A member of the RNA family "mir-124 microRNA precursor family" from Tribolium castaneum, 70 nucleotides long. The base pairs follow the family's consensus structure, which was predicted with PFOLD. The organism belongs to Tribolium, within Eukaryota. Its family is annotated with RISC complex and miRNA-mediated post-transcriptional gene silencing in the Gene Ontology.
RNA sequence: UUCUCCUAGUGUUCACUGUUGGCCUGUAUGUUUUUGUAACGCAUAAGGCACGCGGUGAAUGCCAAGAGCA
Numbered sequence: 001u002u003c004u005c006c007u008a009g010u011g012u013u014c015a016c017u018g019u020u021g022g023c024c025u026g027u028a029u030g031u032u033u034u035u036g037u038a039a040c041g042c043a044u045a046a047g048g049c050a051c052g053c054g055g056u057g058a059a060u061g062c063c064a065a066g067a068g069c070a
Stems, first nucleotide, its partner, number of pairs: 003068003009062008018053002023048003027045005